The family of this 73-nucleotide sequence from Thiohalocapsa sp. PB-PSB1 is "tRNA".
Transfer RNA (tRNA) molecules are approximately 80 nucleotides in length.
Gene Ontology term of the family: triplet codon-amino acid adaptor activity.
Pairs were carried over by alignment from the consensus structure, which is taken from published work.
The match comes from Rfam's covariance-model search (74 bits).
RNA sequence: GGGCCGUUAGCUCAGCGGUUAGAGCAGGGGACUCAUAAUCCCUUGGUCCUAGGUUCGAAUCCUAGACGGCCCA
Numbered sequence: 001g002g003g004c005c006g007u008u009a010g011c012u013c014a015g016c017g018g019u020u021a022g023a024g025c026a027g028g029g030g031a032c033u034c035a036u037a038a039u040c041c042c043u044u045g046g047u048c049c050u051a052g053g054u055u056c057g058a059a060u061c062c063u064a065g066a067c068g069g070c071c072c073a
Base pairs, nucleotide, nucleotide: 001072002071003070004069005068006067007066010025011024012023013022027043028042029041030040031039049065050064051063052062053061